A member of the RNA family "bZIP non canonical Hac1/Xbp1 intron", 84 nucleotides long. For this family Rfam cites "Conserved RNA structures in the non-canonical Hac1/Xbp1 intron" (Hooks and Griffiths-Jones, RNA Biol, 2011).
[Rfam]
RNA sequence: CGUGUCGGCUGUACUGUACCAGCGCUGGGAUCAGCAGUAUCCCUUAAACCCUCUGCAGCAGGGUGGCACAGUACAGACGGCACG
Number, nucleotide and partner (000 for none) at each position: 001c084002g083003u082004g081005u080006c079007g078008g000009c076010u075011g074012u073013a072014c000015u000016g000017u000018a000019c000020c000021a000022g000023c000024g000025c000026u000027g043028g042029g041030a040031u039032c000033a000034g000035c000036a000037g000038u000039a031040u030041c029042c028043c027044u000045u000046a000047a000048a064049c063050c062051c061052u060053c000054u000055g000056c000057a000058g000059c000060a052061g051062g050063g049064u048065g000066g000067c000068a000069c000070a000071g000072u013073a012074c011075a010076g009077a000078c007079g006080g005081c004082a003083c002084g001
It is one of the family's seed sequences. Pairs were carried over by alignment from the consensus structure, which was predicted with RNAfold. About the family: bZIP intron RNA is a non-canonical intron that was first reported in HAC1 gene in yeast and XBP1 gene in Metazoa.